[Rfam]
RNA sequence: GUUCUUACAACAUCUGGUUAAAGUUAAUCGACACUUAACCGGCAAUUGUAAGAACAG
Numbered sequence: 001g002u003u004c005u006u007a008c009a010a011c012a013u014c015u016g017g018u019u020a021a022a023g024u025u026a027a028u029c030g031a032c033a034c035u036u037a038a039c040c041g042g043c044a045a046u047u048g049u050a051a052g053a054a055c056a057g
Base pairs, nucleotide, nucleotide: 001055002054003053004052005051006050007049008048009047010046014042015041016040017039018038019037020036021035023032024031025030
RNA: mir-3015 microRNA precursor family
Organism: Acyrthosiphon pisum